The record is a 98-nucleotide RNA from Rhinopithecus roxellana, which matches "Y RNA" in Rfam. The literature on the family includes a 2013 paper in Physiol Genomics by Dhahbi et al., "5'-YRNA fragments derived by processing of transcripts from specific YRNA genes and pseudogenes are abundant in human serum and plasma". Rfam describes the family as follows. Y RNAs are components of the Ro ribonucleoprotein particle (Ro RNP), in association with Ro60 and La proteins. The Y RNAs and Ro60 and La proteins are well conserved, but the function of the Ro RNP is not known. In humans the RNA component can be one of four small RNAs -- hY1, hY3, hY4 and hY5.
[Rfam]
RNA sequence: GGCUGGUCUGAGUGCAGUGGUGUUUACAAUUGAUCACAACCAGUUAACAGAUUUCUUUGCUCCUCAUCCACUCCCACUGCUUCACUUAACUAGUAAAA
Numbered sequence: 001g002g003c004u005g006g007u008c009u010g011a012g013u014g015c016a017g018u019g020g021u022g023u024u025u026a027c028a029a030u031u032g033a034u035c036a037c038a039a040c041c042a043g044u045u046a047a048c049a050g051a052u053u054u055c056u057u058u059g060c061u062c063c064u065c066a067u068c069c070a071c072u073c074c075c076a077c078u079g080c081u082u083c084a085c086u087u088a089a090c091u092a093g094u095a096a097a098a
Stems, first nucleotide, its partner, number of pairs: 002094006010087002014083001016078005022073001028061001030059001032057002